[Rfam]
RNA sequence: UUUGUAAGAACCUUUUGAAUCACUACUUUGAUUCAAAAGGUUCUCGACGGCU
Number, nucleotide and partner (000 for none) at each position: 001u000002u000003u000004g000005u046006a000007a044008g043009a042010a041011c040012c039013u038014u037015u036016u035017g034018a033019a032020u031021c030022a029023c000024u000025a000026c000027u000028u000029u022030g021031a020032u019033u018034c017035a016036a015037a014038a013039g012040g011041u010042u009043c008044u007045c000046g005047a000048c000049g000050g000051c000052u000
Overview: Rfam assigns this 52-nucleotide sequence from Quercus aliena to the family "Plastid-ccsA-ndhD-2 3UTR RNA". Plastid ccsA-ndhD-2 is a non-coding RNA (ncRNA) recognised in plastids. On this family, see Stern and Gruissem, Cell 1987: "Control of plastid gene expression: 3' inverted repeats act as mRNA processing and stabilizing elements, but do not terminate transcription". The source organism's lineage runs through Eukaryota, Tracheophyta, Euphyllophyta, Fagaceae and Quercus. The base pairs follow the family's consensus structure, which was predicted with LocARNA.